[Rfam]
RNA sequence: GGCUGUAAGUUUGAGGACACAGCAGAAGCACUCACAGCAUGGCCCUGUCAGAUUCUAACAAAUCUGUGAAUUCUGCU
Number, nucleotide and partner (000 for none) at each position: 001g000002g000003c000004u000005g000006u000007a000008a000009g000010u000011u000012u000013g045014a000015g044016g043017a000018c041019a000020c000021a077022g076023c075024a074025g073026a072027a071028g040029c000030a000031c000032u000033c000034a000035c000036a000037g000038c000039a000040u028041g018042g000043c016044c015045c013046u000047g000048u000049c066050a065051g064052a063053u062054u061055c000056u000057a000058a000059c000060a000061a054062a053063u052064c051065u050066g049067u000068g000069a000070a000071u027072u026073c025074u024075g023076c022077u021